[Rfam]
DUF3800-V RNA: a 98-nucleotide RNA. It is annotated as a small RNA. The sequence is in the family's curated seed alignment. Pairs were carried over by alignment from the consensus structure, which is taken from published work.

RNA sequence: AGAAGCAUGCAAUAAUAGCUUAUAGAAUGCCUUGGUGUUCCCCCAGAGAAUCUGGGAUGUAAAAGCCUUGGAAAACCAUUCUAUGAGACGCUACUUCU
Numbered sequence: 001a002g003a004a005g006c007a008u009g010c011a012a013u014a015a016u017a018g019c020u021u022a023u024a025g026a027a028u029g030c031c032u033u034g035g036u037g038u039u040c041c042c043c044c045a046g047a048g049a050a051u052c053u054g055g056g057a058u059g060u061a062a063a064a065g066c067c068u069u070g071g072a073a074a075a076c077c078a079u080u081c082u083a084u085g086a087g088a089c090g091c092u093a094c095u096u097c098u
Stems, first nucleotide, its partner, number of pairs: 001098005009091002023083007030071002034067003042056005
Dot-bracket structure: (((((...((............(((((((((..(((.....(((((.....)))))........)))..)).....)))))))......))..)))))